[Rfam]
RNA sequence: UGCGGCGUAGCUCAGCAGGUAGAGCGUCCGCCUGUUAAGCGGAAUGUCGCAGGUUCGAGCCAUGCCGCCGCAG
Numbered sequence: 001u002g003c004g005g006c007g008u009a010g011c012u013c014a015g016c017a018g019g020u021a022g023a024g025c026g027u028c029c030g031c032c033u034g035u036u037a038a039g040c041g042g043a044a045u046g047u048c049g050c051a052g053g054u055u056c057g058a059g060c061c062a063u064g065c066c067g068c069c070g071c072a073g
Stems, first nucleotide, its partner, number of pairs: 001072007010025004027043005049065003053061001

Notes: tRNA: a 73-nucleotide RNA sequence from Candidatus Moduliflexus flocculans. The base pairs follow the family's consensus structure, which is taken from published work.